[Rfam]
RNA sequence: CAUUAAAACUAUAUCCAUGCCUCUUUAAGUUCUUUAAAAACUUAAUAGAAAAUUGGGUGAAUUGCAAGAAAGUCUUAAUUCAAUCUUAAUUUAAUUUAACCCCUUUCUUUUUUAAGUUGAAAAAAGAUAAUUUGCAGCGAAGUUUAUAUCGGUAUAAUUAAAAUUAUUUAAUUUGGUAUAAAAACGUUCAACGACUAACAGGUGAGUAAUACCAAUCAAUAACCCUGUACUGUUAACUAUUUAACAGAAGCGCCCAAUCAGUUUGUUAUCAUGCAAUUGCUGUCAUUUCAAAUUGAAAGACAUAGUCUGAACUUAACUGUGAAGUUAAG
Numbered sequence: 001c002a003u004u005a006a007a008a009c010u011a012u013a014u015c016c017a018u019g020c021c022u023c024u025u026u027a028a029g030u031u032c033u034u035u036a037a038a039a040a041c042u043u044a045a046u047a048g049a050a051a052a053u054u055g056g057g058u059g060a061a062u063u064g065c066a067a068g069a070a071a072g073u074c075u076u077a078a079u080u081c082a083a084u085c086u087u088a089a090u091u092u093a094a095u096u097u098a099a100c101c102c103c104u105u106u107c108u109u110u111u112u113u114a115a116g117u118u119g120a121a122a123a124a125a126g127a128u129a130a131u132u133u134g135c136a137g138c139g140a141a142g143u144u145u146a147u148a149u150c151g152g153u154a155u156a157a158u159u160a161a162a163a164u165u166a167u168u169u170a171a172u173u174u175g176g177u178a179u180a181a182a183a184a185c186g187u188u189c190a191a192c193g194a195c196u197a198a199c200a201g202g203u204g205a206g207u208a209a210u211a212c213c214a215a216u217c218a219a220u221a222a223c224c225c226u227g228u229a230c231u232g233u234u235a236a237c238u239a240u241u242u243a244a245c246a247g248a249a250g251c252g253c254c255c256a257a258u259c260a261g262u263u264u265g266u267u268a269u270c271a272u273g274c275a276a277u278u279g280c281u282g283u284c285a286u287u288u289c290a291a292a293u294u295g296a297a298a299g300a301c302a303u304a305g306u307c308u309g310a311a312c313u314u315a316a317c318u319g320u321g322a323a324g325u326u327a328a329g
Base pairs, nucleotide, nucleotide: 001019002018003017028033052258053257054256055255056254058252059251063136064135065134066133067132068131073127074126075125076124137187138186143181144180150175151174152173154172191308193307194306195305196304197303260294261293262292263291264290265289268286314327315326316325317324318323

A member of the RNA family "Group I catalytic intron" from Leucoagaricus sp. SymC.cos, 329 nucleotides long. For this family Rfam cites "Self-splicing of group I introns" (Cech, Annu Rev Biochem, 1990). Pairs were carried over by alignment from the consensus structure, which is taken from published work. Group I catalytic introns are large self-splicing ribozymes. They catalyse their own excision from mRNA, tRNA and rRNA precursors in a wide range of organisms. The core secondary structure consists of 9 paired regions (P1-P9). These fold to essentially two domains - the P4-P6 domain (formed from the stacking of P5, P4, P6 and P6a helices) and the P3-P9 domain (formed from the P8, P3, P7 and P9 helices). The secondary structure mark-up for this family represents only this conserved core. Group I catalytic introns often have long ORFs inserted in loop regions. The window size for this search is chosen to minimise search time and catch the small examples. A larger window size will find more matches. Taxonomically the source falls in Leucoagaricus (Eukaryota, Fungi, Agaricales, Agaricineae).